Shown here is a 148-nucleotide RNA from Chinchilla lanigera, a member of the family "Small nucleolar RNA SNORA57". Taxonomically the source falls in Chinchilla (Eukaryota, Opisthokonta, Vertebrata, Chinchillidae). On this family, see Vitali et al., Nucleic Acids Res 2003: "Identification of 13 novel human modification guide RNAs". Rfam describes the family as follows. U99 belongs to the H/ACA class of snoRNAs which are thought to guide the sites of modification of uridines to pseudouridines, the target for this family is unknown. Rfam classes the family as an H/ACA-box small nucleolar RNA. Rfam links the family to the GO terms nucleolus and RNA processing.
[Rfam]
RNA sequence: CCUCCAUUUCUUGGCGGAGACCGGGCGCGCAGUCCCGCUCCCCGUUAUGUACGGAGGCAGAAAAAGGGGCUCUGGCCCCCUCGGCGUCAUGUCUUCGGUGCCGGCGGCGUCCAGUCCGCCGGUUCUAUCCUCUAGCGCCGCGACAGGC
Numbered sequence: 001c002c003u004c005c006a007u008u009u010c011u012u013g014g015c016g017g018a019g020a021c022c023g024g025g026c027g028c029g030c031a032g033u034c035c036c037g038c039u040c041c042c043c044g045u046u047a048u049g050u051a052c053g054g055a056g057g058c059a060g061a062a063a064a065a066g067g068g069g070c071u072c073u074g075g076c077c078c079c080c081u082c083g084g085c086g087u088c089a090u091g092u093c094u095u096c097g098g099u100g101c102c103g104g105c106g107g108c109g110u111c112c113a114g115u116c117c118g119c120c121g122g123u124u125c126u127a128u129c130c131u132c133u134a135g136c137g138c139c140g141c142g143a144c145a146g147g148c
Stems, first nucleotide, its partner, number of pairs: 001057005015044003019040002022037004082140006101122007